Small nucleolar RNA SNORA55: a 133-nucleotide RNA sequence from Buceros rhinoceros. ACA55 is a member of the H/ACA class of snoRNA that guide the sites of modification of uridines to pseudouridines. A search with the family's covariance model found it, with a score of 100 bits. Lineage of the source: Eukaryota > Deuterostomia > Tetrapoda > Amniota > Buceros rhinoceros. Gene Ontology terms of the family: nucleolus and RNA processing. The family's consensus secondary structure was predicted with PFOLD. The family's RNA type in Rfam is H/ACA-box small nucleolar RNA.
[Rfam]
RNA sequence: GCAUCUUAAUCUUUUCCACUCCUGGCGAGACAGUGCUGGAUUGGAGAUACCAGAUGCAAGAGGAGAGCAGGGGAAAUCCAGACAAGCUCCCUUUCACCACAGUGGGACUUGUCUCUACACCUUUGCAACAUUU
Numbered sequence: 001g002c003a004u005c006u007u008a009a010u011c012u013u014u015u016c017c018a019c020u021c022c023u024g025g026c027g028a029g030a031c032a033g034u035g036c037u038g039g040a041u042u043g044g045a046g047a048u049a050c051c052a053g054a055u056g057c058a059a060g061a062g063g064a065g066a067g068c069a070g071g072g073g074a075a076a077u078c079c080a081g082a083c084a085a086g087c088u089c090c091c092u093u094u095c096a097c098c099a100c101a102g103u104g105g106g107a108c109u110u111g112u113c114u115c116u117a118c119a120c121c122u123u124u125g126c127a128a129c130a131u132u133u
Base pairs, nucleotide, nucleotide: 001057002056003055004054005053013047014046015045016044017043018042021039022038067126068125069124070123071122072121080114081113082112083111084110085109086108094105095104096103
Dot-bracket structure: (((((.......((((((..((...............))..)))))).....))))).........((((((.......(((((((.......(((......)))..)))))))......)))))).......